[Rfam]
This 55-nucleotide RNA from Rhizobacter koreensis belongs to the Rfam family "nhaA-I RNA". Pairs were carried over by alignment from the consensus structure, which is taken from published work. The match comes from Rfam's covariance-model search (46 bits). The organism belongs to Rhizobacter, within Bacteria. About the family: Acidobacteria, Alphaproteobacteria, Betaproteobacteria and Gammaproteobacteria, Verrucomicrobia, cand. division NC10.
RNA sequence: GGGUGGGACGCCGCAUCGGGCGUUUCCAGGUUCUUGCGAUGGUCGGGCCGCCUCG
Numbered sequence: 001g002g003g004u005g006g007g008a009c010g011c012c013g014c015a016u017c018g019g020g021c022g023u024u025u026c027c028a029g030g031u032u033c034u035u036g037c038g039a040u041g042g043u044c045g046g047g048c049c050g051c052c053u054c055g
Base pairs, nucleotide, nucleotide: 005027006026007025008023009022010021011020037055038054039053041052042051043050